[Rfam]
Rfam assigns this 177-nucleotide RNA from Capsicum annuum to the family "MIR6027 microRNA precursor family". Rfam links the family to the GO terms RISC complex and miRNA-mediated post-transcriptional gene silencing.
RNA sequence: UCCUAAUUUUUACAUGGUUAUGGGUAGCGAAGGAUUAACGUGAAACAGGUAAGUGAUAAUACAGAAUUCAUUGAGGAGAAAAGGGUCCAAAGGGUUGAUUGUUAUGAAGAAAUGAAGAGAACAUUUAACGUUUCUCGUGAAUCCUUCGGCUAUCCAUAACCAUGUUAAAUUUUGGGA
Numbered sequence: 001u002c003c004u005a006a007u008u009u010u011u012a013c014a015u016g017g018u019u020a021u022g023g024g025u026a027g028c029g030a031a032g033g034a035u036u037a038a039c040g041u042g043a044a045a046c047a048g049g050u051a052a053g054u055g056a057u058a059a060u061a062c063a064g065a066a067u068u069c070a071u072u073g074a075g076g077a078g079a080a081a082a083g084g085g086u087c088c089a090a091a092g093g094g095u096u097g098a099u100u101g102u103u104a105u106g107a108a109g110a111a112a113u114g115a116a117g118a119g120a121a122c123a124u125u126u127a128a129c130g131u132u133u134c135u136c137g138u139g140a141a142u143c144c145u146u147c148g149g150c151u152a153u154c155c156a157u158a159a160c161c162a163u164g165u166u167a168a169a170u171u172u173u174g175g176g177a
Stems, first nucleotide, its partner, number of pairs: 002176004008169003012165017030146007038138003042134005050127006067111003